[Rfam]
RNA sequence: CCAGAACUACGGUUCGAGCACAUACCCGGCAAUGCUCAGACCGUUGAGGGGCUUCAGCGCAAGCUGGAGCCCCUUUUUUCUU
Numbered sequence: 001c002c003a004g005a006a007c008u009a010c011g012g013u014u015c016g017a018g019c020a021c022a023u024a025c026c027c028g029g030c031a032a033u034g035c036u037c038a039g040a041c042c043g044u045u046g047a048g049g050g051g052c053u054u055c056a057g058c059g060c061a062a063g064c065u066g067g068a069g070c071c072c073c074u075u076u077u078u079u080c081u082u
Stems, first nucleotide, its partner, number of pairs: 010043005016037003048073008057064002
Shown here is an 82-nucleotide RNA from Bradyrhizobium erythrophlei, a member of the family "Bradyrhizobiaceae sRNA BjrC68". Pairs were carried over by alignment from the consensus structure. It scores 93 bits against the family's covariance model.